This 60-nucleotide sequence from Salvia bulleyana belongs to the Rfam family "Plastid-psbA-4 3UTR RNA". The literature on the family includes a 2023 paper in Plant Commun by Richter et al., "Retrograde signaling in plants: A critical review focusing on the GUN pathway and beyond". Rfam describes the family as follows. Plastid psbA-4 is a non-coding RNA (ncRNA) present in plastids. It was identified in inverted repeat sequences in the 3 prime untranslate region (3UTR) of photosystem II quinone-binding protein (psbA). The sequence is in the family's curated seed alignment.
RNA sequence: GAAAAUAAAGGAGCAAUAAACCCUUUACUUGUUCUAUCAAAAGAGGGUUUAUUGCUCCUU
Numbered sequence: 001g002a003a004a005a006u007a008a009a010g011g012a013g014c015a016a017u018a019a020a021c022c023c024u025u026u027a028c029u030u031g032u033u034c035u036a037u038c039a040a041a042a043g044a045g046g047g048u049u050u051a052u053u054g055c056u057c058c059u060u
Stems, first nucleotide, its partner, number of pairs: 008060011022046001024045001026043001029040003
Dot-bracket structure: .......(((((((((((...(.(.(..(((......)))..).))...)))))))))))